[Rfam]
RNA sequence: UGCUUUUAGUCAUAAGAAUUACAACUCUGUGUAAACGGUGUCGCGCAGAUACCGCAGAGAUAUGUCGAACGCUAGGGUGGAAACAGCAAGGAUACUUGCCACACCACUCUUCCCUCUAUCGAAAGGUAGAUGGACUAGACUAACAAGUCGAAAGCAAGAUGUAGUGCGCGAGUUGUAGUGUACAAAGGUAUUCCUCGUAUUCGUGGGUGCAAUAGAGGUGAUUAACAGUCGCUGAAUCCAAGUAGGUCAAAGGGUGGGAGAUGAACGCCCCAUCAAGCCUUGGAACGGUUCAUAAGCCCAUUAGCCGUGAACCAACGAAAGUUGGGUAUAAGAAUAGAGGAAGUUCGAGUAGCCUAAGGCUUUCUUUAAGGAAAAGCUAUUCAAAAAUCUGAUGAAAAUGUUUUAUCUUUUGGUGAAUUGCAGGUGAAAGUUGAGAGUUUACAAUCUCUUUAGAGCGGUGUGUUCUUCGGAACAAGGAUAGAAAAGUAACUGGGGUAGCUCCCCUAUGCUCACAGCUAUCUUCUCUAUGACUGAACAUGUAUGUGGCAAUAAUCGGCGUAAGGCGAAGGUCUGUAGUUUUUAUGACUAAGAG
Numbered sequence: 001u002g003c004u005u006u007u008a009g010u011c012a013u014a015a016g017a018a019u020u021a022c023a024a025c026u027c028u029g030u031g032u033a034a035a036c037g038g039u040g041u042c043g044c045g046c047a048g049a050u051a052c053c054g055c056a057g058a059g060a061u062a063u064g065u066c067g068a069a070c071g072c073u074a075g076g077g078u079g080g081a082a083a084c085a086g087c088a089a090g091g092a093u094a095c096u097u098g099c100c101a102c103a104c105c106a107c108u109c110u111u112c113c114c115u116c117u118a119u120c121g122a123a124a125g126g127u128a129g130a131u132g133g134a135c136u137a138g139a140c141u142a143a144c145a146a147g148u149c150g151a152a153a154g155c156a157a158g159a160u161g162u163a164g165u166g167c168g169c170g171a172g173u174u175g176u177a178g179u180g181u182a183c184a185a186a187g188g189u190a191u192u193c194c195u196c197g198u199a200u201u202c203g204u205g206g207g208u209g210c211a212a213u214a215g216a217g218g219u220g221a222u223u224a225a226c227a228g229u230c231g232c233u234g235a236a237u238c239c240a241a242g243u244a245g246g247u248c249a250a251a252g253g254g255u256g257g258g259a260g261a262u263g264a265a266c267g268c269c270c271c272a273u274c275a276a277g278c279c280u281u282g283g284a285a286c287g288g289u290u291c292a293u294a295a296g297c298c299c300a301u302u303a304g305c306c307g308u309g310a311a312c313c314a315a316c317g318a319a320a321g322u323u324g325g326g327u328a329u330a331a332g333a334a335u336a337g338a339g340g341a342a343g344u345u346c347g348a349g350u351a352g353c354c355u356a357a358g359g360c361u362u363u364c365u366u367u368a369a370g371g372a373a374a375a376g377c378u379a380u381u382c383a384a385a386a387a388u389c390u391g392a393u394g395a396a397a398a399u400g401u402u403u404u405a406u407c408u409u410u411u412g413g414u415g416a417a418u419u420g421c422a423g424g425u426g427a428a429a430g431u432u433g434a435g436a437g438u439u440u441a442c443a444a445u446c447u448c449u450u451u452a453g454a455g456c457g458g459u460g461u462g463u464u465c466u467u468c469g470g471a472a473c474a475a476g477g478a479u480a481g482a483a484a485a486g487u488a489a490c491u492g493g494g495g496u497a498g499c500u501c502c503c504c505u506a507u508g509c510u511c512a513c514a515g516c517u518a519u520c521u522u523c524u525c526u527a528u529g530a531c532u533g534a535a536c537a538u539g540u541a542u543g544u545g546g547c548a549a550u551a552a553u554c555g556g557c558g559u560a561a562g563g564c565g566a567a568g569g570u571c572u573g574u575a576g577u578u579u580u581u582a583u584g585a586c587u588a589a590g591a592g
Stems, first nucleotide, its partner, number of pairs: 007589001009587001015581004020576001025059005036054007061163006075109006086099005111134003115130006138149004169573001174549001187538001188532001191342004198336005203301006219231004237284006245274003252270003260290003303361004312325005346430001352425004413513003434450002437447001452526003476522002481517001486510001488507001492504004561572004
A member of the RNA family "ROOL RNA", 592 nucleotides long. The sequence is in the family's curated seed alignment. By type it is a small RNA.